[Rfam]
Nucleotides: 093
Base pairs, nucleotide, nucleotide: 012037013036017032018031019030020029021028022027040087041086042085043084045082046081047080048076049075050074055070056069057068
Number, partner (000 for none) and nucleotide at each position: 001000c002000c003000c004000c005000g006000a007000a008000a009000a010000u011000g012037g013036c014000a015000a016000c017032u018031g019030c020029u021028u022027u023000g024000a025000a026000a027022a028021g029020g030019g031018u032017a033000g034000g035000c036013g037012c038000a039000a040087a041086u042085c043084a044000a045082u046081a047080g048076u049075c050074c051000u052000a053000a054000a055070c056069c057068a058000c059000c060000u061000c062000u063000a064000c065000a066000u067000u068057u069056g070055g071000c072000a073000c074050g075049g076048a077000c078000a079000g080047u081046u082045a083000u084043u085042g086041a087040u088000g089000c090000c091000g092000a093000a